This 89-nucleotide RNA from Devosia litorisediminis belongs to the Rfam family "Glycine riboswitch aptamer". Its family is annotated with glycine biosynthetic process in the Gene Ontology.

RNA sequence: GAAAUCACUGCGGGAGAGACUGGUUUUUCUCCAGCGCCGAAGGAGCAACCGCCCCGGAAACUCUCAGGCCAAAGGACCGCAGGACGCUA
Numbered sequence: 001g002a003a004a005u006c007a008c009u010g011c012g013g014g015a016g017a018g019a020c021u022g023g024u025u026u027u028u029c030u031c032c033a034g035c036g037c038c039g040a041a042g043g044a045g046c047a048a049c050c051g052c053c054c055c056g057g058a059a060a061c062u063c064u065c066a067g068g069c070c071a072a073a074g075g076a077c078c079g080c081a082g083g084a085c086g087c088u089a
Stems, first nucleotide, its partner, number of pairs: 008082006020034004036069003039065002043063003049057002
Lineage of the source: Bacteria > Pseudomonadota > Alphaproteobacteria > Hyphomicrobiales > Devosia.